[Rfam]
RNA sequence: CAGCAUGUUUCCAAGGGCUGUGGCUGGUGGCAGCCAUGGGAUCUCCAACUGCACGAGAGCAACCUGGAGAGACAGACAGCUCGGGUCAGCAUAAUAUCUGCAGCUGCCACUCACCUUGCCUAUAAUA
Number, nucleotide and partner (000 for none) at each position: 001c000002a000003g000004c000005a000006u000007g000008u000009u000010u000011c039012c038013a000014a000015g000016g035017g034018c033019u032020g031021u030022g000023g000024c000025u000026g000027g000028u000029g000030g021031c020032a019033g018034c017035c016036a000037u000038g012039g011040g000041a000042u000043c000044u000045c000046c000047a000048a000049c000050u000051g000052c000053a000054c000055g000056a000057g000058a000059g000060c000061a000062a000063c000064c000065u000066g120067g119068a000069g117070a116071g115072a000073c000074a000075g000076a000077c000078a000079g107080c106081u000082c100083g099084g098085g097086u000087c000088a000089g000090c000091a000092u000093a000094a000095u000096a000097u085098c084099u083100g082101c000102a000103g000104c000105u000106g080107c079108c000109a000110c000111u000112c000113a000114c000115c071116u070117u069118g000119c067120c066121u000122a000123u000124a000125a000126u000127a000

This 127-nucleotide RNA from Molossus molossus belongs to the Rfam family "Small nucleolar RNA SNORA44". Its Rfam clan is "SNORA44 clan". By type it is an H/ACA-box small nucleolar RNA. A reference for the family is Huttenhofer et al. (2001), "RNomics: an experimental approach that identifies 201 candidates for novel, small, non-messenger RNAs in mouse", EMBO J. About the family: ACA44 is a member of the H/ACA class of snoRNA that guide the sites of modification of uridines to pseudouridines. The organism belongs to Molossus, within Eukaryota.